RNA sequence: GAGCCUUCAGCCCGACCCCCCGGGGCUGAAGGCCGAUGACCCCGGCCUCCUCCCCCCUGGCCGGGGUCAUCACCU
Dot-bracket structure: ..(((((((((((.........))))))))))).(((((((((((((...........)))))))))))))....

A member of the RNA family "6C RNA" from Gordonia hirsuta, 75 nucleotides long. The base pairs follow the family's consensus structure, which is taken from published work. Taxonomically the source falls in Gordonia hirsuta (Bacteria, Actinomycetota, Mycobacteriales, Gordoniaceae). The match comes from Rfam's covariance-model search (75 bits). For this family Rfam cites "Identification of 22 candidate structured RNAs in bacteria using the CMfinder comparative genomics pipeline" (Weinberg et al., Nucleic Acids Res, 2007).